[Rfam]
Rfam assigns this 67-nucleotide sequence from Saimiri boliviensis to the family "Small nucleolar RNA SNORD77". The organism belongs to Saimiri boliviensis, within Eukaryota. A search with the family's covariance model found it, with a score of 56 bits. By type it is a C/D-box small nucleolar RNA. U77 belongs to the C/D family of snoRNAs. It is predicted to guide 2'O-ribose methylation of large 28S rRNA subunit at position A1521. The C/D snoRNAs U44, U47, U74, U75, U76, U78, U79, U80 and U81 share the same host gene as U77 (non-coding). The family is grouped with related families in Rfam's "SNORD77 clan". Pairs were carried over by alignment from the consensus structure, which was predicted with RNAalifold.
RNA sequence: AUACUAUGACAGUUGCAUAGUUCAGCAGAUUGAAUUUAUAAAGAGAUUUACAAUGUCGAAUGUAGUU
Numbered sequence: 001a002u003a004c005u006a007u008g009a010c011a012g013u014u015g016c017a018u019a020g021u022u023c024a025g026c027a028g029a030u031u032g033a034a035u036u037u038a039u040a041a042a043g044a045g046a047u048u049u050a051c052a053a054u055g056u057c058g059a060a061u062g063u064a065g066u067u
Stems, first nucleotide, its partner, number of pairs: 002064003006039004013028004046054003
Dot-bracket structure: .(((.((((...((((........)))).......))))......(((...))).......)))...